[Rfam]
RNA sequence: UGGAAGUGAUGAAACAGAGAUAAUUGGAUGCUUCUCUGAAUGGAGUGUGCAUGGUAAAUAAAAUUUGAAUUGAAUCAAACUUCUUGGGGGGAGGGGGAAGUGUGUGUCUGUGUCUGUGUGGUACAUAAAAGGCUAUGAACUGGGGGCACUGAUAAUGAAGUGCUGAUUCCGGAGUGCAUCUGAGGCAUGUUGUUAAAUUCUGGGGUGUCGCUUUUCAACAUUGCCGAUGAUUAGAGCCCCAAACAAGCUCACCAGACAAGCCUGGGCAUCUUAAAAAUCUCUAACAGGUUCAUUAAUGAAAAUGAUCCUGUGAUCUGAUCCAA
Numbered sequence: 001u002g003g004a005a006g007u008g009a010u011g012a013a014a015c016a017g018a019g020a021u022a023a024u025u026g027g028a029u030g031c032u033u034c035u036c037u038g039a040a041u042g043g044a045g046u047g048u049g050c051a052u053g054g055u056a057a058a059u060a061a062a063a064u065u066u067g068a069a070u071u072g073a074a075u076c077a078a079a080c081u082u083c084u085u086g087g088g089g090g091g092a093g094g095g096g097g098a099a100g101u102g103u104g105u106g107u108c109u110g111u112g113u114c115u116g117u118g119u120g121g122u123a124c125a126u127a128a129a130a131g132g133c134u135a136u137g138a139a140c141u142g143g144g145g146g147c148a149c150u151g152a153u154a155a156u157g158a159a160g161u162g163c164u165g166a167u168u169c170c171g172g173a174g175u176g177c178a179u180c181u182g183a184g185g186c187a188u189g190u191u192g193u194u195a196a197a198u199u200c201u202g203g204g205g206u207g208u209c210g211c212u213u214u215u216c217a218a219c220a221u222u223g224c225c226g227a228u229g230a231u232u233a234g235a236g237c238c239c240c241a242a243a244c245a246a247g248c249u250c251a252c253c254a255g256a257c258a259a260g261c262c263u264g265g266g267c268a269u270c271u272u273a274a275a276a277a278u279c280u281c282u283a284a285c286a287g288g289u290u291c292a293u294u295a296a297u298g299a300a301a302a303u304g305a306u307c308c309u310g311u312g313a314u315c316u317g318a319u320c321c322a323a
Stems, first nucleotide, its partner, number of pairs: 001322004188220005195213001197206003